[Rfam]
RNA: mir-31 microRNA precursor family
Organism: Diabrotica virgifera
RNA sequence: AAAUUUCAAGUAGGCAAGAUGUCGGCAUAGCUGAUUGUUUUGAAAUUCGGCUGUGUCUCAUCCAGCCAAUUUGUGUUUCA
Numbered sequence: 001a002a003a004u005u006u007c008a009a010g011u012a013g014g015c016a017a018g019a020u021g022u023c024g025g026c027a028u029a030g031c032u033g034a035u036u037g038u039u040u041u042g043a044a045a046u047u048c049g050g051c052u053g054u055g056u057c058u059c060a061u062c063c064a065g066c067c068a069a070u071u072u073g074u075g076u077u078u079c080a
Stems, first nucleotide, its partner, number of pairs: 005075001007073005013067003018062004024057008